RNA: antisense RNA of dnaA mRNA
RNA sequence: UUUCAUUUUAGGAUUGUUUUCCAAAAUGAAAUGUCCAAUUGAAUGCAUAAGGUGAGUCUUGCCAAGUCCGGCACCACCAUA
Numbered sequence: 001u002u003u004c005a006u007u008u009u010a011g012g013a014u015u016g017u018u019u020u021c022c023a024a025a026a027u028g029a030a031a032u033g034u035c036c037a038a039u040u041g042a043a044u045g046c047a048u049a050a051g052g053u054g055a056g057u058c059u060u061g062c063c064a065a066g067u068c069c070g071g072c073a074c075c076a077c078c079a080u081a
Stems, first nucleotide, its partner, number of pairs: 002043004007038002011036003016032003020029002051078004056074002061072003